[Rfam]
RNA: Actinobacteria sRNA Ms_AS-4
Organism: Knoellia remsis
RNA sequence: CUUGGCGCUGGUGAAACGGUCGGGGUCGUCCCCGAACUCGGCGAGCACCCGGGGGCCCAGGACCGGGCCCAGGCCCGGUUGA
Numbered sequence: 001c002u003u004g005g006c007g008c009u010g011g012u013g014a015a016a017c018g019g020u021c022g023g024g025g026u027c028g029u030c031c032c033c034g035a036a037c038u039c040g041g042c043g044a045g046c047a048c049c050c051g052g053g054g055g056c057c058c059a060g061g062a063c064c065g066g067g068c069c070c071a072g073g074c075c076c077g078g079u080u081g082a
Stems, first nucleotide, its partner, number of pairs: 009043002012040002018038003023033003055079003060075002063072001